[Rfam]
RNA: MIR8562 microRNA precursor family
RNA sequence: UUUUCUACAAAUCGGAAUGACUUGAAAUUUGGAGUGUGUGUUCAUCAAAAAUAGGCAAAUCUAAGAAAAAUAUCAAAAACAUAUUUUACAUAAAAAAUGUUAACCAAAAUACCCCCGAAAAGUUUCAGGGGUAUUUUGGUCAAUUUGUUUUUCAUGGAUUUUUUUUAUAUUUUUAUUAGGUGUGCCUCACUAAGAUGUACACAUGCUCCAAAUUUCAAUCAUUCCGAUUUGUAGAAAA
Numbered sequence: 001u002u003u004u005c006u007a008c009a010a011a012u013c014g015g016a017a018u019g020a021c022u023u024g025a026a027a028u029u030u031g032g033a034g035u036g037u038g039u040g041u042u043c044a045u046c047a048a049a050a051a052u053a054g055g056c057a058a059a060u061c062u063a064a065g066a067a068a069a070a071u072a073u074c075a076a077a078a079a080c081a082u083a084u085u086u087u088a089c090a091u092a093a094a095a096a097a098u099g100u101u102a103a104c105c106a107a108a109a110u111a112c113c114c115c116c117g118a119a120a121a122g123u124u125u126c127a128g129g130g131g132u133a134u135u136u137u138g139g140u141c142a143a144u145u146u147g148u149u150u151u152u153c154a155u156g157g158a159u160u161u162u163u164u165u166u167a168u169a170u171u172u173u174u175a176u177u178a179g180g181u182g183u184g185c186c187u188c189a190c191u192a193a194g195a196u197g198u199a200c201a202c203a204u205g206c207u208c209c210a211a212a213u214u215u216c217a218a219u220c221a222u223u224c225c226g227a228u229u230u231g232u233a234g235a236a237a238a
Stems, first nucleotide, its partner, number of pairs: 001238020022218013036204006043197003061179004066174008075165005097146001099144003103140012117124002